[Rfam]
RNA sequence: UCUCGACUUCAGGGCGGGGCGAAAUUCCCCACCGGUGGUAACUGCACCCGGUUGACACAAAACCAUGCAGAAGCCCACGAGCGCUUCACCUAUAUAUAGUAGGUGUAAGGUCAGCAGAUCAGGUUGAAUUCCUGAGCCGACGGUUACAGUCCGGACGGAAGAAGUCGAAA
Numbered sequence: 001u002c003u004c005g006a007c008u009u010c011a012g013g014g015c016g017g018g019g020c021g022a023a024a025u026u027c028c029c030c031a032c033c034g035g036u037g038g039u040a041a042c043u044g045c046a047c048c049c050g051g052u053u054g055a056c057a058c059a060a061a062a063c064c065a066u067g068c069a070g071a072a073g074c075c076c077a078c079g080a081g082c083g084c085u086u087c088a089c090c091u092a093u094a095u096a097u098a099g100u101a102g103g104u105g106u107a108a109g110g111u112c113a114g115c116a117g118a119u120c121a122g123g124u125u126g127a128a129u130u131c132c133u134g135a136g137c138c139g140a141c142g143g144u145u146a147c148a149g150u151c152c153g154g155a156c157g158g159a160a161g162a163a164g165u166c167g168a169a170a
Base pairs, nucleotide, nucleotide: 003168004167005166006165007164008163009162010161017029018028019027031150032149033139034138035078036077037076038075073137074136081115082114119135120134121133122132123131141153142152143151
A member of the RNA family "FMN riboswitch aptamer (RFN element)" from Reinekea marinisedimentorum, 170 nucleotides long. It scores 106 bits against the family's covariance model. Rfam links the family to the GO term FMN binding. The base pairs follow the family's consensus structure, which is taken from published work.